[Rfam]
The record is a 127-nucleotide RNA from Halanaerobacter jeridensis, which matches "PyrR binding site" in Rfam. The family's consensus secondary structure is taken from published work. The source organism's lineage runs through Bacteria, Bacillati, Clostridia, Halanaerobiales and Halanaerobacter. For this family Rfam cites "Molecular recognition of pyr mRNA by the Bacillus subtilis attenuation regulatory protein PyrR" (Bonner et al., Nucleic Acids Res, 2001).
RNA sequence: UCAACCUUUAAACUAAUCCAGUGAGAUUAGCAAGGGUCAAGCAAAUUUUGAACUUAUCCCAAGAUGAAAUAGGGGAUUACUAUAAAUUCUAGCCUCUUGUCAGUGUUACUGGCAAGAGGUUUUUUUA
Dot-bracket structure: ..(.((((....((((((......)))))).)))).).........((((.(.(.(((((............))))).).).))))....((((((((((((.......))))))))))))......